Description
This 194-nucleotide sequence from Anopheles stephensi belongs to the Rfam family "drz-agam-2-2 ribozyme". NCBI's taxonomy places the organism under Eukaryota, Eumetazoa, Panorpida, Culicomorpha, Neocellia. For this family Rfam cites "Widespread occurrence of self-cleaving ribozymes" (Webb et al., Science, 2009).
[Rfam]
RNA sequence: AUCAACAGCGUUCUGUUAAUGGGGUAGGAUCCGAGACUCCUUUCGGGGUUACACAGGCUCUCUUACCCAACUCCUAUUCCGUCUCGUCCUCGUCGUACAGAGUGGUAACUUUCCCAACCACAUAUCCAAGCUUGGGUACAGGGGCAUGUCCCAACCCCUUGGAUGGAUGGUGGAGCAAGGCUAAACAGGAGUGG
Dot-bracket structure: .........(((((((.....((((((((.((.......................))...))))))))...[[.[.[[.[....((.[[....)).)))))))]]...(((.((((.((....((((....(((((.............)))))..(....)..))))))))).).)))........]]]].]]